[Rfam]
The record is an 86-nucleotide RNA sequence from Solanum commersonii, which matches "MIR8024 microRNA precursor family" in Rfam. Rfam links the family to the GO terms miRNA-mediated post-transcriptional gene silencing and RISC complex.
RNA sequence: UUAGAGGAUUUGAAGACUUCAAUUUGCAAACUUGAAGAAUUUGAAAACUUCAACUUGCAAAUUUGAAGAAUUUGAAGACUUCAACU
Numbered sequence: 001u002u003a004g005a006g007g008a009u010u011u012g013a014a015g016a017c018u019u020c021a022a023u024u025u026g027c028a029a030a031c032u033u034g035a036a037g038a039a040u041u042u043g044a045a046a047a048c049u050u051c052a053a054c055u056u057g058c059a060a061a062u063u064u065g066a067a068g069a070a071u072u073u074g075a076a077g078a079c080u081u082c083a084a085c086u
Stems, first nucleotide, its partner, number of pairs: 001084002004081003009076006017068005025059004032053006